RNA: mir-1684 microRNA precursor family
RNA sequence: AGGUUUCAAAGGUUUGUUAUUCUUUCACAUACUCGUAUACACAUAUUAUGUGUAUACGAGUAUGUGAAAGAAUAACAAACCUUUGAAACCU
Numbered sequence: 001a002g003g004u005u006u007c008a009a010a011g012g013u014u015u016g017u018u019a020u021u022c023u024u025u026c027a028c029a030u031a032c033u034c035g036u037a038u039a040c041a042c043a044u045a046u047u048a049u050g051u052g053u054a055u056a057c058g059a060g061u062a063u064g065u066g067a068a069a070g071a072a073u074a075a076c077a078a079a080c081c082u083u084u085g086a087a088a089c090c091u
Stems, first nucleotide, its partner, number of pairs: 002090002006086002009083013023069010034058002039053004
Dot-bracket structure: .((..((.(((((((((((((.((((((((((.((...((((.......))))...)).)))))))))).))))))))))))).))..)).